Overview: This 125-nucleotide RNA sequence from Bucco capensis belongs to the Rfam family "Small nucleolar RNA ACA64". Pairs were carried over by alignment from the consensus structure, which was predicted with WAR. Its family is annotated with nucleolus and RNA processing in the Gene Ontology. It scores 55 bits against the family's covariance model. On this family, see Schattner et al., RNA 2006: "A computational screen for mammalian pseudouridylation guide H/ACA RNAs". Lineage of the source: Eukaryota > Chordata > Sauria > Saurischia > Bucco.
RNA sequence: UUUCAUUUCAAUUCACUUGGGGUCUUCUGUGGCCCCUGGUGCAAUAACUAUGCCGACAGCAGAGGGAGCAUUAAACUCAUUGCCCACAGUAAAGUGUGGGGAGUGAUACCCAUGUUCCUAUAAUC
Numbered sequence: 001u002u003u004c005a006u007u008u009c010a011a012u013u014c015a016c017u018u019g020g021g022g023u024c025u026u027c028u029g030u031g032g033c034c035c036c037u038g039g040u041g042c043a044a045u046a047a048c049u050a051u052g053c054c055g056a057c058a059g060c061a062g063a064g065g066g067a068g069c070a071u072u073a074a075a076c077u078c079a080u081u082g083c084c085c086a087c088a089g090u091a092a093a094g095u096g097u098g099g100g101g102a103g104u105g106a107u108a109c110c111c112a113u114g115u116u117c118c119u120a121u122a123a124u125c
Stems, first nucleotide, its partner, number of pairs: 005051002010045001014041003021034004065118001067116005077106005085098003